[Rfam]
RNA sequence: CCGUGCAGCCGGGGUGUUAGCGGUACCUUGUACCUGCAAUCCGCUACAGCAGGGGUGAUAUUACGCAGAGGGCUUUGAUUUGUGGAGCUGCCUUUGGUAAGCGACGUUGAUAACUGGGUCUCACGCGACGGAAAUCUGUGAACCGUGUCAGGUCGGGAACGAAGCAGCACUAAGCAGAACCUUUCGGGUGCCGUGAGGGUGCCUGGUUUGAGUUGGCUGCCAAAGUAACGUCUGGGAAUCCAGGUUCGAAGCGUAAUGCACGG
Numbered sequence: 001c002c003g004u005g006c007a008g009c010c011g012g013g014g015u016g017u018u019a020g021c022g023g024u025a026c027c028u029u030g031u032a033c034c035u036g037c038a039a040u041c042c043g044c045u046a047c048a049g050c051a052g053g054g055g056u057g058a059u060a061u062u063a064c065g066c067a068g069a070g071g072g073c074u075u076u077g078a079u080u081u082g083u084g085g086a087g088c089u090g091c092c093u094u095u096g097g098u099a100a101g102c103g104a105c106g107u108u109g110a111u112a113a114c115u116g117g118g119u120c121u122c123a124c125g126c127g128a129c130g131g132a133a134a135u136c137u138g139u140g141a142a143c144c145g146u147g148u149c150a151g152g153u154c155g156g157g158a159a160c161g162a163a164g165c166a167g168c169a170c171u172a173a174g175c176a177g178a179a180c181c182u183u184u185c186g187g188g189u190g191c192c193g194u195g196a197g198g199g200u201g202c203c204u205g206g207u208u209u210g211a212g213u214u215g216g217c218u219g220c221c222a223a224a225g226u227a228a229c230g231u232c233u234g235g236g237a238a239u240c241c242a243g244g245u246u247c248g249a250a251g252c253g254u255a256a257u258g259c260a261c262g263g
Stems, first nucleotide, its partner, number of pairs: 001263007008056003011029008033053005061256006070247005077240005083234003089227002093224006101217002103214003112208008120197006126188001129186005135178005145170004153162003
Dot-bracket structure: ((((((((((((((((((...))))))))...(((((...........))))))))....((((((...(((((..(((((.(((...((..((((((..(((((......(((((((((((((((..(((((.(((((.....((((....(((....)))....))))...)))))...))))).)...))))))...))))))))...))).)).)))))).))....))).)))))..)))))...)))))))))))))